[Rfam]
RNA sequence: UCUCGAAAUUGGCAAACCCGCCGAAAGUCGGGGGCGCAAAGCCACGGAGCUAAGGAGGAAACUCUAUGCUGGCCGGGCCGCCGGG
Dot-bracket structure: ...........((...((((.(....).))))...))...(((.((((((....(((....)))...)))..)))))).......
Numbered sequence: 001u002c003u004c005g006a007a008a009u010u011g012g013c014a015a016a017c018c019c020g021c022c023g024a025a026a027g028u029c030g031g032g033g034g035c036g037c038a039a040a041g042c043c044a045c046g047g048a049g050c051u052a053a054g055g056a057g058g059a060a061a062c063u064c065u066a067u068g069c070u071g072g073c074c075g076g077g078c079c080g081c082c083g084g085g
Stems, first nucleotide, its partner, number of pairs: 012037002017032004022027001041078003045075003048070003055064003